Description:
Group II catalytic intron D1-D4-2: a 117-nucleotide sequence from Tissierella sp. P1. From the family's description: Group II introns are found in rRNA, tRNA and mRNA of organelles in fungi, plants and protists, and also in mRNA in bacteria. Pairs were carried over by alignment from the consensus structure. NCBI's taxonomy places the organism under Bacteria, Bacillota, Tissierellia, Tissierellales, Tissierella.
[Rfam]
RNA sequence: GGCGGAUGGGCCGCCUAAAUCGCCAUACAGGUGGAGGUUUCAAACUACCUUAAGGUGCUGUGGUCAAAAGUUAUUGUACUGAGCGUUAAGGAAAAGGCAGUAAUAAAAACUGUCAAG
Numbered sequence: 001g002g003c004g005g006a007u008g009g010g011c012c013g014c015c016u017a018a019a020u021c022g023c024c025a026u027a028c029a030g031g032u033g034g035a036g037g038u039u040u041c042a043a044a045c046u047a048c049c050u051u052a053a054g055g056u057g058c059u060g061u062g063g064u065c066a067a068a069a070g071u072u073a074u075u076g077u078a079c080u081g082a083g084c085g086u087u088a089a090g091g092a093a094a095a096g097g098c099a100g101u102a103a104u105a106a107a108a109a110c111u112g113u114c115a116a117g
Stems, first nucleotide, its partner, number of pairs: 001015005017040005023034004046117001048091006054080002057077002061073004096114006